Rfam assigns this 52-nucleotide RNA to the family "L31-Gammaproteobacteria ribosomal protein leader". The family is grouped with related families in Rfam's "Ribosomal Protein L31 Leader clan".

[Rfam]
RNA sequence: CGUAUGGUGUGCAACUUCGGGUUGUAUAGCGAUACGGCCUUUUACGUGAGGU
Numbered sequence: 001c002g003u004a005u006g007g008u009g010u011g012c013a014a015c016u017u018c019g020g021g022u023u024g025u026a027u028a029g030c031g032a033u034a035c036g037g038c039c040u041u042u043u044a045c046g047u048g049a050g051g052u
Stems, first nucleotide, its partner, number of pairs: 001036005007030002011025006
The family's consensus secondary structure is taken from published work. The family's RNA type in Rfam is cis-regulatory leader.